[Rfam]
RNA sequence: GGAGGCCAGUGAUGAUCUUCUUAUAGUCUUGCCUACAUUGCCUGACUAUAUCUAUGAUUAUGUCAUUGACUUUUCUGAGGCCUCU
Numbered sequence: 001g002g003a004g005g006c007c008a009g010u011g012a013u014g015a016u017c018u019u020c021u022u023a024u025a026g027u028c029u030u031g032c033c034u035a036c037a038u039u040g041c042c043u044g045a046c047u048a049u050a051u052c053u054a055u056g057a058u059u060a061u062g063u064c065a066u067u068g069a070c071u072u073u074u075c076u077g078a079g080g081c082c083u084c085u
Stems, first nucleotide, its partner, number of pairs: 001085002004082004